Background: Shown here is an 87-nucleotide RNA from Daucus carota, a member of the family "Small nucleolar RNA Z159/U59". Lineage of the source: Eukaryota > Streptophytina > asterids > Scandiceae > Daucus carota. Pairs were carried over by alignment from the consensus structure, which was predicted with PFOLD.

RNA sequence: GUCUCUGAUGAUGAUUCACAAAAUACUUUCGUUCUUCUGAGAUUAAAGUCUAUGUGGAAAUUUUAUGGAGACCUGAACUGAAGAGAU
Number, nucleotide and partner (000 for none) at each position: 001g000002u000003c085004u084005c083006u082007g000008a000009u000010g000011a000012u000013g000014a000015u000016u000017c000018a000019c000020a000021a000022a000023a000024u000025a000026c000027u000028u000029u000030c000031g000032u000033u000034c000035u000036u000037c000038u000039g000040a000041g000042a000043u000044u000045a000046a000047a000048g000049u000050c000051u000052a000053u000054g000055u000056g000057g000058a000059a000060a000061u000062u000063u000064u000065a000066u000067g000068g000069a000070g000071a000072c000073c000074u000075g000076a000077a000078c000079u000080g000081a000082a006083g005084a004085g003086a000087u000